[Rfam]
RNA sequence: GCCUUAUACAGAUAUAGUGACGCAAGACAGUGGCGUAUCUCCCUGUAAGGUGGUGUUAAACAUAGAAGUAUGAGUGACAAAUUCUAUUGUGUGGCUUCUGAGUCGAAAUAGAAUGAGCUUAUACGGAAUGGGUUAACCGUAAGACCUUGAAUUGAAAACUUCUAAAAUCGACCUAGUGAUACGAAAAUAAUUCUCGAUUUUCAUUAUUUCUAGUUACGGUGGA
Numbered sequence: 001g002c003c004u005u006a007u008a009c010a011g012a013u014a015u016a017g018u019g020a021c022g023c024a025a026g027a028c029a030g031u032g033g034c035g036u037a038u039c040u041c042c043c044u045g046u047a048a049g050g051u052g053g054u055g056u057u058a059a060a061c062a063u064a065g066a067a068g069u070a071u072g073a074g075u076g077a078c079a080a081a082u083u084c085u086a087u088u089g090u091g092u093g094g095c096u097u098c099u100g101a102g103u104c105g106a107a108a109u110a111g112a113a114u115g116a117g118c119u120u121a122u123a124c125g126g127a128a129u130g131g132g133u134u135a136a137c138c139g140u141a142a143g144a145c146c147u148u149g150a151a152u153u154g155a156a157a158a159c160u161u162c163u164a165a166a167a168u169c170g171a172c173c174u175a176g177u178g179a180u181a182c183g184a185a186a187a188u189a190a191u192u193c194u195c196g197a198u199u200u201u202c203a204u205u206a207u208u209u210c211u212a213g214u215u216a217c218g219g220u221g222g223a
Stems, first nucleotide, its partner, number of pairs: 001051008010040006017034002020031002022028001068124008082113007093104002096101001130147005136220006142168001149162003153158001173213004178208004183202005
The record is a 223-nucleotide sequence, which matches "IS605-orfB-I RNA" in Rfam. The sequence is in the family's curated seed alignment.